[Rfam]
RNA sequence: ACACAAGGAAGGAGGUGGUCGAACAAAUGGAUAGUUCUAGGACACGUGAGGUGGCUGUCCGCUAGCGCCACCGCUGCCGGUGACUAUUCACCCGCGCGAGCGCGAGCGAAUAUCAGGCAGCCACCCGGCCCCCGAACCCCCGGUCGGUCCGAUCGGGACCCGUGCAGGUGAGAGCCCGCACCGGUAUGGUUCGGGGGCUGUUCCCU
Numbered sequence: 001a002c003a004c005a006a007g008g009a010a011g012g013a014g015g016u017g018g019u020c021g022a023a024c025a026a027a028u029g030g031a032u033a034g035u036u037c038u039a040g041g042a043c044a045c046g047u048g049a050g051g052u053g054g055c056u057g058u059c060c061g062c063u064a065g066c067g068c069c070a071c072c073g074c075u076g077c078c079g080g081u082g083a084c085u086a087u088u089c090a091c092c093c094g095c096g097c098g099a100g101c102g103c104g105a106g107c108g109a110a111u112a113u114c115a116g117g118c119a120g121c122c123a124c125c126c127g128g129c130c131c132c133c134g135a136a137c138c139c140c141c142g143g144u145c146g147g148u149c150c151g152a153u154c155g156g157g158a159c160c161c162g163u164g165c166a167g168g169u170g171a172g173a174g175c176c177c178g179c180a181c182c183g184g185u186a187u188g189g190u191u192c193g194g195g196g197g198c199u200g201u202u203c204c205c206u
Stems, first nucleotide, its partner, number of pairs: 014059006060108004065103004072096003126200013139157006

The family of this 206-nucleotide RNA from Nocardia panacis is "Actinobacteria sRNA Ms_IGR-5". The source organism's lineage runs through Bacteria, Actinomycetota, Actinomycetes, Mycobacteriales and Nocardia. The pairing is the family consensus, mapped onto this sequence. A search with the family's covariance model found it, with a score of 137 bits.